RNA sequence: UUGUACAGAUCCUUAUUCAACCUGGUUGUGGUGCCCAAUAAACCAUCAUCACAACCUCCUUGAAUGAGUGUUCUUGCAG
Numbered sequence: 001u002u003g004u005a006c007a008g009a010u011c012c013u014u015a016u017u018c019a020a021c022c023u024g025g026u027u028g029u030g031g032u033g034c035c036c037a038a039u040a041a042a043c044c045a046u047c048a049u050c051a052c053a054a055c056c057u058c059c060u061u062g063a064a065u066g067a068g069u070g071u072u073c074u075u076g077c078a079g
Stems, first nucleotide, its partner, number of pairs: 008071001012068009024056002027053007